[Rfam]
RNA sequence: AUCGAGCUGCGACAUUGGUGACUGCCAAUAGUGUUUUUAGAUCUACAAUCAUCCUGUAUAUGGGAACCACAAAUGCUCAAGGUGGCAGUAAACCGGGCAAGUACCCGGAAACUUAAAGCUAGAGCCAAGGUACCCACUUGAAUAUAUGCAGGUCAAAAACUGAGGUAAAACGGUGUUGCGGUCAGUCU
Number, nucleotide and partner (000 for none) at each position: 001a000002u000003c185004g000005a000006g182007c181008u180009g179010c178011g177012a176013c175014a174015u173016u000017g000018g171019u170020g000021a000022c000023u000024g000025c000026c000027a000028a000029u000030a000031g000032u000033g000034u000035u159036u158037u157038u000039a000040g154041a153042u152043c151044u150045a000046c000047a000048a000049u000050c000051a000052u000053c000054c000055u000056g000057u000058a000059u000060a000061u000062g135063g134064g133065a000066a131067c130068c129069a000070c000071a000072a000073a000074u000075g000076c124077u123078c122079a000080a120081g119082g000083u000084g000085g000086c000087a000088g112089u111090a000091a000092a000093c108094c107095g106096g105097g104098c000099a000100a000101g000102u000103a000104c097105c096106c095107g094108g093109a000110a000111a089112c088113u000114u000115a000116a000117a000118g000119c081120u080121a000122g078123a077124g076125c000126c000127a000128a000129g068130g067131u066132a000133c064134c063135c062136a000137c000138u000139u000140g000141a000142a000143u000144a000145u000146a000147u000148g000149c000150a044151g043152g042153u041154c040155a000156a000157a037158a036159a035160c000161u000162g000163a000164g000165g000166u000167a000168a000169a000170a019171c018172g000173g015174u014175g013176u012177u011178g010179c009180g008181g007182u006183c000184a000185g003186u000187c000188u000